[Rfam]
RNA sequence: AGCAUUCUGUAUCCAUGCUGAGAUUCCGUCACACACCAGACCAUAAGGGCUGAUGAAACUCCCAAGAUAAGUGAAGCA
Numbered sequence: 001a002g003c004a005u006u007c008u009g010u011a012u013c014c015a016u017g018c019u020g021a022g023a024u025u026c027c028g029u030c031a032c033a034c035a036c037c038a039g040a041c042c043a044u045a046a047g048g049g050c051u052g053a054u055g056a057a058a059c060u061c062c063c064a065a066g067a068u069a070a071g072u073g074a075a076g077c078a
Base pairs, nucleotide, nucleotide: 002077003076005074006073008071010069011068012067013066016064017063020061021060022059024058025057027055028054029053030052

A member of the RNA family "mir-3492 microRNA precursor family" from Schistosoma curassoni, 78 nucleotides long.
The match comes from Rfam's covariance-model search (76 bits).
Rfam links the family to the GO terms RISC complex and miRNA-mediated post-transcriptional gene silencing.
Lineage of the source: Eukaryota > Protostomia > Rhabditophora > Schistosomatidae > Schistosoma.